[Rfam]
A member of the RNA family "tRNA" from Thalassococcus sp. S3, 73 nucleotides long.
NCBI's taxonomy places the organism under Bacteria, Pseudomonadota, Alphaproteobacteria, Roseobacteraceae, Thalassococcus.
It is annotated as a transfer RNA.
Pairs were carried over by alignment from the consensus structure, which is taken from published work.

RNA sequence: UCGGCUGUAGCUCAGUUGGAAGAGCACCUGACUGUUAAUCAGGGUGUCGCAGGUUCGAGCCCUGCCAGCCGAG
Numbered sequence: 001u002c003g004g005c006u007g008u009a010g011c012u013c014a015g016u017u018g019g020a021a022g023a024g025c026a027c028c029u030g031a032c033u034g035u036u037a038a039u040c041a042g043g044g045u046g047u048c049g050c051a052g053g054u055u056c057g058a059g060c061c062c063u064g065c066c067a068g069c070c071g072a073g
Stems, first nucleotide, its partner, number of pairs: 001072007010025004027043005049065005